[Rfam]
A member of the RNA family "abiF RNA" from Cohnella cholangitidis, 37 nucleotides long. Rfam's curators write: Actinobacteria, Bacteroidetes, Clostridia, Proteobacteria, one Clostridia phage. The family's consensus secondary structure is taken from published work. The match comes from Rfam's covariance-model search (38 bits).
RNA sequence: CCCGCCGCGCUUCUUAACAAUGCGCACUAAGGCGGGA
Numbered sequence: 001c002c003c004g005c006c007g008c009g010c011u012u013c014u015u016a017a018c019a020a021u022g023c024g025c026a027c028u029a030a031g032g033c034g035g036g037a
Stems, first nucleotide, its partner, number of pairs: 001036006008024003
Dot-bracket structure: ((((((.(((...........)))......)))))).